[Rfam]
This 104-nucleotide RNA sequence from Roseicyclus persicicus belongs to the Rfam family "SAM-I/IV (S-adenosyl methionine) riboswitch aptamer".
RNA sequence: UCCACACAUCAAGAGUGGGGCUCGCGCCUCUACCAACCUGCCAAACCCGGCAAGGUGGUCGCCCGAAAGGGGAUGUGGCCGGUUCGGCAACGAAAGGGGUUGCU
Numbered sequence: 001u002c003c004a005c006a007c008a009u010c011a012a013g014a015g016u017g018g019g020g021c022u023c024g025c026g027c028c029u030c031u032a033c034c035a036a037c038c039u040g041c042c043a044a045a046c047c048c049g050g051c052a053a054g055g056u057g058g059u060c061g062c063c064c065g066a067a068a069g070g071g072g073a074u075g076u077g078g079c080c081g082g083u084u085c086g087g088c089a090a091c092g093a094a095a096g097g098g099g100u101u102g103c104u
Base pairs, nucleotide, nucleotide: 006076007075008074009073010072015031017030018029019028020027021026032059033058034057037055038054039053040051041050042049044100046098047097048096078088079087080086081085
On this family, see Weinberg et al., RNA 2008: "The aptamer core of SAM-IV riboswitches mimics the ligand-binding site of SAM-I riboswitches".